[Rfam]
RNA sequence: GUACUCCCUCUAUAAACAAAUGUAAGAGCGUUUAGAUCACUAAAAUAGUAAUCUAAACAUUCUUAUAUUAGUUUACGGAGGGAGUAA
Numbered sequence: 001g002u003a004c005u006c007c008c009u010c011u012a013u014a015a016a017c018a019a020a021u022g023u024a025a026g027a028g029c030g031u032u033u034a035g036a037u038c039a040c041u042a043a044a045a046u047a048g049u050a051a052u053c054u055a056a057a058c059a060u061u062c063u064u065a066u067a068u069u070a071g072u073u074u075a076c077g078g079a080g081g082g083a084g085u086a087a
Stems, first nucleotide, its partner, number of pairs: 003085003007081005013075005019069010030058008039049003

MIR1120/MIR1122 microRNA precursor family: an 87-nucleotide sequence from Aegilops tauschii.
A search with the family's covariance model found it, with a score of 86 bits.
The family's consensus secondary structure was predicted with RNAalifold.
For this family Rfam cites "Cloning and characterization of microRNAs from wheat (Triticum aestivum L.)" (Yao et al., Genome Biol, 2007).
Rfam 15.1 lists 44,765 matches to the family in 8 species.
Gene Ontology terms of the family: RISC complex and miRNA-mediated post-transcriptional gene silencing.
Lineage of the source: Eukaryota > Viridiplantae > commelinids > Aegilops > Aegilops tauschii.